[Rfam]
RNA: L31-Actinobacteria ribosomal protein leader
RNA sequence: UCGGUCUCCGGUUCACGACGGCGUUCCUCGCCGUCGACCCGGGGAGACC
Numbered sequence: 001u002c003g004g005u006c007u008c009c010g011g012u013u014c015a016c017g018a019c020g021g022c023g024u025u026c027c028u029c030g031c032c033g034u035c036g037a038c039c040c041g042g043g044g045a046g047a048c049c
Stems, first nucleotide, its partner, number of pairs: 003049002008042004016036008
Dot-bracket structure: ..((...((((....((((((((.....))))))))..)))).....))